[Rfam]
RNA sequence: CCCCAGUGAUGAGUUGCCAUGCUAAUACUGAGCCACCAGGUAGGGCAGUGUUGCCCUGGCUUGGGUGCCAGUGAGUUAAACAAAACUUCUCACAUGAAAACCUGAGGGGC
Numbered sequence: 001c002c003c004c005a006g007u008g009a010u011g012a013g014u015u016g017c018c019a020u021g022c023u024a025a026u027a028c029u030g031a032g033c034c035a036c037c038a039g040g041u042a043g044g045g046c047a048g049u050g051u052u053g054c055c056c057u058g059g060c061u062u063g064g065g066u067g068c069c070a071g072u073g074a075g076u077u078a079a080a081c082a083a084a085a086c087u088u089c090u091c092a093c094a095u096g097a098a099a100a101c102c103u104g105a106g107g108g109g110c
Base pairs, nucleotide, nucleotide: 001109002108003107004106041058042057043056044055045054
RNA: Small nucleolar RNA U6-53/MBII-28
Organism: Ochotona princeps